[Rfam]
This 139-nucleotide sequence from Phtheirospermum japonicum belongs to the Rfam family "Small nucleolar RNA Z247".
RNA sequence: AAUAUUAAAGAUAGUGAUCAGAUCAUGUACUUGUUGAAUGGUUUAGGAGCUGAAUAUAACCCUCUCAUUGUCUCUAUCACUACUAGACAUGAAAAGGUUACAAUGAUGGAAGCAUAUUCAAUGCUGCCGAGUUUUGAAA
Number, nucleotide and partner (000 for none) at each position: 001a000002a000003u000004a000005u137006u136007a135008a134009a000010g000011a000012u000013a000014g000015u000016g000017a000018u000019c000020a000021g000022a000023u000024c000025a000026u000027g000028u000029a000030c000031u000032u000033g000034u000035u000036g000037a000038a000039u000040g000041g000042u000043u000044u000045a000046g000047g000048a000049g000050c000051u000052g000053a000054a000055u000056a000057u000058a000059a000060c000061c000062c000063u000064c000065u000066c000067a000068u000069u000070g000071u000072c000073u000074c000075u000076a000077u000078c000079a000080c000081u000082a000083c000084u000085a000086g000087a000088c108089a107090u106091g000092a104093a000094a000095a000096g000097g000098u000099u000100a000101c000102a000103a000104u092105g000106a090107u089108g088109g000110a000111a000112g000113c000114a000115u000116a000117u000118u000119c000120a000121a000122u000123g000124c000125u000126g000127c000128c000129g000130a000131g000132u000133u000134u008135u007136g006137a005138a000139a000
Record summary:
For this family Rfam cites "The high diversity of snoRNAs in plants: identification and comparative study of 120 snoRNA genes from Oryza sativa" (Chen et al., Nucleic Acids Res, 2003). The base pairs follow the family's consensus structure, which was predicted with PFOLD. Rfam classes the family as a C/D-box small nucleolar RNA.